A member of the RNA family "transfer-messenger RNA" from Agrilutibacter solisilvae, 354 nucleotides long. The family's consensus secondary structure is taken from published work. Rfam classes the family as a non-coding RNA gene. Rfam describes the family as follows. Bacterial tmRNA, also known as 10Sa RNA or SsrA, is named for its dual tRNA and mRNA-like properties. Its role is to liberate the mRNA from a stalled ribosome. To accomplish this part of the tmRNA is used as a reading frame that ends in a translation stop signal. A search with the family's covariance model found it, with a score of 204 bits. Rfam links the family to the GO term RNA catabolic process. For this family Rfam cites "Phylogenetic analysis of tmRNA secondary structure" (Williams and Bartel, RNA, 1996).
RNA sequence: GGGGGUGCAUUGGCUUCGACGGGGGUCGCAAAAUCGCCUGGUGCAUGCCGAGGGGGCAGCUUUCCUCGUUAAUCCAGCGGCAAAACUCUAGUUGCCAACGACGACAACUACGCUCUCGCCGCUUAAGGCGUAAGCCCCGAAACUGCCUGUGUCCGUGCUAGCAGCGUAGGGUCAUUAUCACGGAAUCGCUGGAAGUGGCUGCCUGUCAGCUUCCGGUCAACCUAAAGCAGGCUGGUCCCCGGGCGCGCUUCGCACGCCGUGCUGUCCGGGGGCGAGAUCCAACGGCGAGCUAAGCAUGUAGUGCCGGGGAUGGAGUGCCUUCGGACGGGGGUUCAAUUCCCCCCACCUCCACCA
Dot-bracket structure: (((((((............(((((((......(((.(((((((((((((((((..[[.[[[..))))).......]]].]].................................((.((..(....)..)).)).[[[.[..[[[[.[[..((((((.]]]]]]..].]]].......))))))...(((((((((....[[[[[...)))))))))..........]]]]]..((((((((((.(((.......[[[)))..))))))))))..........]]].......)))))...)))))))))).....)))))))...(((((.......))))))))))))....